Annotation:
Shown here is a 47-nucleotide RNA from Tetracentron sinense, a member of the family "Plastid-rpl16 group II-D1 intron". A reference for the family is Richter et al. (2023), "Retrograde signaling in plants: A critical review focusing on the GUN pathway and beyond", Plant Commun. From the family's description: Plastid-rpl16 is a non-coding RNA (ncRNA) recognised in plastids. It was recognised in and intronic region of a ribosome rpl16 gene.

[Rfam]
RNA sequence: AAAAUUCUCGAGUCAACAAAGACUAAGGAAAUUGACUCAGGAACAAA
Numbered sequence: 001a002a003a004a005u006u007c008u009c010g011a012g013u014c015a016a017c018a019a020a021g022a023c024u025a026a027g028g029a030a031a032u033u034g035a036c037u038c039a040g041g042a043a044c045a046a047a
Stems, first nucleotide, its partner, number of pairs: 007041002010038007
Dot-bracket structure: ......((.(((((((...............))))))).))......
The base pairs follow the family's consensus structure, which was predicted with LocARNA.